[Rfam]
This 323-nucleotide RNA from Janthinobacterium sp. Marseille belongs to the Rfam family "Bacterial RNase P class A".
RNA sequence: GAAGUAAGCCAAGACAACCGCUGGCUGUCAUUUCGGUGAUGGCGGGAGGAAGGUCCGGACUCCAUAGAGCAGGGUGACGGUUAACGGCCGUCCGCCGUGAGGCGAGGAAUAGGGCCACAGAGACGAGCGUAUUAAGUUACGGUGAAACGCGGUAACCUCCACUCGGAGCAAUUCCAAAUAGGCACGCGUUGACGUUGCUCGCGGAGCGUGCGGGUAGGAAGCUUGAGCCGUGGAGUAAUUCACGGCCUAGAGGAAUGGUUGUCAUAACGCGUGGGUUCGCCCAUGCGUCGUAACAGAAUCCGGCCUAUCGGCUUGCUUCAACU
Number, nucleotide and partner (000 for none) at each position: 001g319002a318003a317004g316005u315006a314007a313008g312009c311010c310011a308012a000013g263014a262015c261016a260017a259018c258019c257020g000021c046022u045023g000024g043025c042026u041027g040028u039029c038030a000031u000032u000033u000034c000035g000036g000037u000038g029039a028040u027041g026042g025043c024044g000045g022046g021047a000048g000049g000050a000051a306052g305053g304054u000055c303056c302057g301058g300059a299060c168061u167062c166063c165064a000065u000066a000067g200068a199069g198070c197071a000072g164073g163074g162075u161076g160077a091078c090079g089080g088081u087082u000083a000084a000085c000086g000087g081088c080089c079090g078091u077092c106093c104094g103095c102096c101097g000098u000099g000100a000101g096102g095103c094104g093105a000106g092107g159108a158109a000110u000111a000112g157113g156114g153115c152116c151117a000118c000119a000120g000121a000122g000123a000124c000125g000126a000127g000128c141129g140130u139131a138132u000133u000134a000135a000136g000137u000138u131139a130140c129141g128142g000143u000144g000145a000146a000147a000148c000149g000150c000151g116152g115153u114154a000155a000156c113157c112158u108159c107160c076161a075162c074163u073164c072165g063166g062167a061168g060169c000170a000171a000172u220173u219174c218175c217176a000177a000178a000179u000180a000181g000182g211183c210184a209185c208186g207187c206188g000189u000190u000191g000192a000193c203194g202195u201196u000197g070198c069199u068200c067201g195202c194203g193204g000205a000206g187207c186208g185209u184210g183211c182212g000213g000214g000215u000216a000217g175218g174219a173220a172221g000222c000223u000224u000225g000226a000227g246228c245229c244230g243231u242232g241233g240234a239235g000236u000237a000238a000239u234240u233241c232242a231243c230244g229245g228246c227247c000248u000249a000250g000251a000252g000253g000254a000255a000256u000257g019258g018259u017260u016261g015262u014263c013264a000265u000266a000267a000268c000269g000270c000271g000272u000273g000274g000275g000276u000277u000278c000279g000280c000281c000282c000283a000284u000285g000286c000287g000288u000289c000290g000291u000292a000293a000294c000295a000296g000297a000298a000299u059300c058301c057302g056303g055304c053305c052306u051307a000308u011309c000310g010311g009312c008313u007314u006315g005316c004317u003318u002319c001320a000321a000322c000323u000
The source organism's lineage runs through Bacteria, Pseudomonadati, Burkholderiales, Oxalobacteraceae and Janthinobacterium. Clan: RNaseP clan. Rfam's curators put it in the seed alignment. Pairs were carried over by alignment from the consensus structure, which is taken from published work. About the family: Ribonuclease P (RNase P) is a ubiquitous endoribonuclease, found in archaea, bacteria and eukarya as well as chloroplasts and mitochondria. By type it is a ribozyme.